[Rfam]
A member of the RNA family "Bacterial RNase P class A" from Candidatus Moduliflexus flocculans, 367 nucleotides long. For this family Rfam cites "The Ribonuclease P Database" (Brown, Nucleic Acids Res, 1999). Pairs were carried over by alignment from the consensus structure, which is taken from published work. It is annotated as a ribozyme.
RNA sequence: GAAGGAAACUGGAUAAUCGCUGACAGGAACACUGUGAGAGGAAAGUCCGAGCUCCGAAGGGCAGGGUGCUGGGUAACACCCAGGCGGAGUGAUCCGACAGACAGUGCCACAGAAAACAUACAGCCAAUGGCCUGUAAAGGCGCAGGUAAUGGUGAAAAGGCGGGGUAAGAGCCCACCGCGAUUCUGGUAACAGAAUUGGCAGGGUAAACCUCACCCGGAGCAAGAUCGAAUAGGAAAACGUUUGAGAGCGGCCCGCUCAAUGUUUUCGGGUUGAUCGCUUGAGGAUGCGUGGCAACAGGCAUUCCAGAUGAAUGAUUAUCAUUCCGGCGACGGAAGACAGAACUCGGCUUACAGGUUUGCUUCAGCA
Numbered sequence: 001g002a003a004g005g006a007a008a009c010u011g012g013a014u015a016a017u018c019g020c021u022g023a024c025a026g027g028a029a030c031a032c033u034g035u036g037a038g039a040g041g042a043a044a045g046u047c048c049g050a051g052c053u054c055c056g057a058a059g060g061g062c063a064g065g066g067u068g069c070u071g072g073g074u075a076a077c078a079c080c081c082a083g084g085c086g087g088a089g090u091g092a093u094c095c096g097a098c099a100g101a102c103a104g105u106g107c108c109a110c111a112g113a114a115a116a117c118a119u120a121c122a123g124c125c126a127a128u129g130g131c132c133u134g135u136a137a138a139g140g141c142g143c144a145g146g147u148a149a150u151g152g153u154g155a156a157a158a159g160g161c162g163g164g165g166u167a168a169g170a171g172c173c174c175a176c177c178g179c180g181a182u183u184c185u186g187g188u189a190a191c192a193g194a195a196u197u198g199g200c201a202g203g204g205u206a207a208a209c210c211u212c213a214c215c216c217g218g219a220g221c222a223a224g225a226u227c228g229a230a231u232a233g234g235a236a237a238a239c240g241u242u243u244g245a246g247a248g249c250g251g252c253c254c255g256c257u258c259a260a261u262g263u264u265u266u267c268g269g270g271u272u273g274a275u276c277g278c279u280u281g282a283g284g285a286u287g288c289g290u291g292g293c294a295a296c297a298g299g300c301a302u303u304c305c306a307g308a309u310g311a312a313u314g315a316u317u318a319u320c321a322u323u324c325c326g327g328c329g330a331c332g333g334a335a336g337a338c339a340g341a342a343c344u345c346g347g348c349u350u351a352c353a354g355g356u357u358u359g360c361u362u363c364a365g366c367a
Base pairs, nucleotide, nucleotide: 001363002362003361004360006358007357008356009355010354011352012320013319014318015317016316017315018314020038021037023035024034025033026032043350044349045348047347048346049345050344051343052220053219054218055217059254060253061252062251064216065215066214067213068212069083070082071081072080073079084098085096086095087094088093099211100210104209105208106205107204108203121151122150123147124146125145128144129143130141131140132139133138159177160176162174163173164172178200179198180197181196182195183194184193185192186191224276225275226274227273234267235266236265237264238263239262246258247257248256249255284303285302286301287300288299290297291296